[Rfam]
Nucleotides: 074
Base pairs, nucleotide, nucleotide: 001074002073004071005070006069
Number, partner (000 for none) and nucleotide at each position: 001074g002073a003000g004071u005070g006069a007000c008000a009000a010000g011000a012000u013000g014000c015000c016000a017000u018000a019000c020000c021000a022000u023000c024000u025000u026000u027000u028000g029000g030000g031000a032000u033000u034000g035000a036000c037000a038000g039000c040000a041000a042000u043000g044000g045000a046000g047000a048000a049000a050000a051000a052000c053000u054000u055000u056000u057000u058000a059000g060000u061000a062000u063000u064000a065000c066000u067000g068000a069006u070005c071004a072000a073002u074001u

This 74-nucleotide sequence from Salmo salar belongs to the Rfam family "Small nucleolar RNA SNORD2". It is annotated as a C/D-box small nucleolar RNA. The source organism's lineage runs through Eukaryota, Gnathostomata, Actinopteri, Clupeocephala and Salmo.